[Rfam]
RNA: Selenocysteine transfer RNA
RNA sequence: GGGGCCGGCAAAGGUACUGGUGUCCUUCGAGGUCUUCAACACUUUCCGAGAGGCGCGUGACGUCUCUGCUGGGUUCGAUUCCCAGACGGUCCC
Numbered sequence: 001g002g003g004g005c006c007g008g009c010a011a012a013g014g015u016a017c018u019g020g021u022g023u024c025c026u027u028c029g030a031g032g033u034c035u036u037c038a039a040c041a042c043u044u045u046c047c048g049a050g051a052g053g054c055g056c057g058u059g060a061c062g063u064c065u066c067u068g069c070u071g072g073g074u075u076c077g078a079u080u081c082c083c084a085g086a087c088g089g090u091c092c093c
Stems, first nucleotide, its partner, number of pairs: 001093007009085001012027003016023002029045005049067005070084004